[Rfam]
RNA sequence: AGCACUGUAUGGUAUCUGCAUCCAGUUGUAUAUCUGGCUGGAUUGUUCAAAUGUCAGUGCGAGAGCAAUUUGAUAGCUGCUGUUAUGGGCCUUAUAUCCUUUUAUAUGUUGGGUCCUUGCGGUUGCCGAAACAGCA
Numbered sequence: 001a002g003c004a005c006u007g008u009a010u011g012g013u014a015u016c017u018g019c020a021u022c023c024a025g026u027u028g029u030a031u032a033u034c035u036g037g038c039u040g041g042a043u044u045g046u047u048c049a050a051a052u053g054u055c056a057g058u059g060c061g062a063g064a065g066c067a068a069u070u071u072g073a074u075a076g077c078u079g080c081u082g083u084u085a086u087g088g089g090c091c092u093u094a095u096a097u098c099c100u101u102u103u104a105u106a107u108g109u110u111g112g113g114u115c116c117u118u119g120c121g122g123u124u125g126c127c128g129a130a131a132c133a134g135c136a
Stems, first nucleotide, its partner, number of pairs: 002060006014054002017051001018046003023041001024039005066125004071119003081104002